Shown here is a 150-nucleotide RNA sequence from Erysipelotrichaceae bacterium MTC7, a member of the family "glmS glucosamine-6-phosphate activated ribozyme aptamer".
This entry contains a glucosamine-6-phosphate activated ribozyme that is found in the mRNA for GlmS. GlmS is an enzyme that uses fructose-6-phosphate and glutamine to generate glucosamine-6-phosphate. The ribozyme catalyses self cleavage of the glmS mRNA that is thought to regulate GlmS activity.
RNA sequence: GUUGCAUAAUCAGCGCCAGGGCAACUAUAAGUUGUUGACGAGGACGAUAGUUAUCGAAAGUUUCGGCGGGUACUAUCGCGGAUACGGUGAUUCGUUAGAAGUAAAACAAAGACCAAGAUCAUAAGGUUAAAAAUUACUUUGCCACCACAA
Numbered sequence: 001g002u003u004g005c006a007u008a009a010u011c012a013g014c015g016c017c018a019g020g021g022c023a024a025c026u027a028u029a030a031g032u033u034g035u036u037g038a039c040g041a042g043g044a045c046g047a048u049a050g051u052u053a054u055c056g057a058a059a060g061u062u063u064c065g066g067c068g069g070g071u072a073c074u075a076u077c078g079c080g081g082a083u084a085c086g087g088u089g090a091u092u093c094g095u096u097a098g099a100a101g102u103a104a105a106a107c108a109a110a111g112a113c114c115a116a117g118a119u120c121a122u123a124a125g126g127u128u129a130a131a132a133a134u135u136a137c138u139u140u141g142c143c144a145c146c147a148c149a150a
Base pairs, nucleotide, nucleotide: 020036021035022034023033024032025031026030045078046077047076048075049074054066055065056064057063079094080093081092082091083090098140099139100138101137102136103135104134112127113126114125
The family's RNA type in Rfam is riboswitch. The base pairs follow the family's consensus structure, which is taken from published work.